RNA sequence: AUCUCCUGAGCGCGUUCUCCUCCCAUUAGCGCUCACGAGUGUUCCCCUCUGGAGGUUUAGCCUUAUAGGCACUUCCAACAAACUCAGCCGGAUCUUAUGAUCCGGCUUUUUUG
Numbered sequence: 001a002u003c004u005c006c007u008g009a010g011c012g013c014g015u016u017c018u019c020c021u022c023c024c025a026u027u028a029g030c031g032c033u034c035a036c037g038a039g040u041g042u043u044c045c046c047c048u049c050u051g052g053a054g055g056u057u058u059a060g061c062c063u064u065a066u067a068g069g070c071a072c073u074u075c076c077a078a079c080a081a082a083c084u085c086a087g088c089c090g091g092a093u094c095u096u097a098u099g100a101u102c103c104g105g106c107u108u109u110u111u112u113g
Stems, first nucleotide, its partner, number of pairs: 001040001003039003007035007050077007086107009
RNA: Alphaproteobacterial ar15
Organism: Aquamicrobium lusatiense